Rfam assigns this 197-nucleotide RNA from Pongo abelii to the family "U2 spliceosomal RNA".
The family has 208 seed sequences and 71,512 matches in Rfam 15.1.
It scores 94 bits against the family's covariance model.
U2 is a small nuclear RNA (snRNA) component of the spliceosome (involved in pre-mRNA splicing).
The family's consensus secondary structure is taken from published work.
The literature on the family includes a 1997 paper in Nucleic Acids Res by Zwieb, "The uRNA database".

RNA sequence: AGUGAAACUUAUCCUUUUGGCUAAGAUCAAGCGUAGUAUCUGUUCUUAACAGUUUAAUAUCUGACACAUUCUCUAUCCAAGGAAGACAUGUUAAAUGGGUUUUUGAAGCAAGGAGAUGGAAUAGGAGUUUGCUCCGCCACUCUACACAUCAACCUGUAUUUCAAUACCUCCAGAAACCCAGGAAUGGUGCAUCUCUC
Numbered sequence: 001a002g003u004g005a006a007a008c009u010u011a012u013c014c015u016u017u018u019g020g021c022u023a024a025g026a027u028c029a030a031g032c033g034u035a036g037u038a039u040c041u042g043u044u045c046u047u048a049a050c051a052g053u054u055u056a057a058u059a060u061c062u063g064a065c066a067c068a069u070u071c072u073c074u075a076u077c078c079a080a081g082g083a084a085g086a087c088a089u090g091u092u093a094a095a096u097g098g099g100u101u102u103u104u105g106a107a108g109c110a111a112g113g114a115g116a117u118g119g120a121a122u123a124g125g126a127g128u129u130u131g132c133u134c135c136g137c138c139a140c141u142c143u144a145c146a147c148a149u150c151a152a153c154c155u156g157u158a159u160u161u162c163a164a165u166a167c168c169u170c171c172a173g174a175a176a177c178c179c180a181g182g183a184a185u186g187g188u189g190c191a192u193c194u195c196u197c
Stems, first nucleotide, its partner, number of pairs: 008025002011022001013020002047066001050063003069083004112143004117139003124135004147189005153182004